Shown here is an 88-nucleotide RNA sequence from Shewanella gelidii, a member of the family "t44 RNA". By type it is a small RNA. It scores 83 bits against the family's covariance model.

[Rfam]
RNA sequence: UUAAUUUAAAUACUAAAUCACACACGUAUCGUCACAUGCUUCGGGGUGCCACUUAUGGUCGAAUGUAUGGGAUACGUGGAGGUCUAAC
Number, nucleotide and partner (000 for none) at each position: 001u000002u000003a000004a000005u000006u000007u000008a000009a000010a000011u000012a000013c000014u000015a000016a000017a000018u000019c000020a000021c000022a000023c078024a077025c076026g075027u074028a073029u072030c071031g000032u000033c000034a000035c069036a068037u067038g066039c065040u063041u062042c061043g060044g000045g000046g000047u000048g059049c058050c057051a056052c000053u000054u000055a000056u051057g050058g049059u048060c043061g042062a041063a040064u000065g039066u038067a037068u036069g035070g000071g030072a029073u028074a027075c026076g025077u024078g023079g000080a000081g000082g000083u000084c000085u000086a000087a000088c000